[Rfam]
Rfam assigns this 90-nucleotide RNA from Prochlorococcus marinus to the family "Cyanobacterial functional RNA 20". It is annotated as a small RNA.
RNA sequence: UAGCAUUUAGGAAGUGCUUAGCUGGUUAUAGUAAGAAAACCUUAAUUUAACCUGUUCGUCAUGAGCUUGCCUGUGGGAUACAUGCAAGCU
Number, nucleotide and partner (000 for none) at each position: 001u000002a018003g017004c016005a015006u014007u013008u012009a000010g000011g000012a008013a007014g006015u005016g004017c003018u002019u000020a000021g000022c000023u000024g052025g051026u050027u049028a048029u000030a046031g000032u044033a043034a042035g041036a000037a000038a000039a000040c000041c035042u034043u033044a032045a000046u030047u000048u028049a027050a026051c025052c024053u000054g000055u000056u000057c000058g000059u000060c000061a000062u000063g000064a000065g089066c088067u087068u086069g085070c084071c000072u000073g000074u000075g000076g000077g000078a000079u000080a000081c000082a000083u000084g070085c069086a068087a067088g066089c065090u000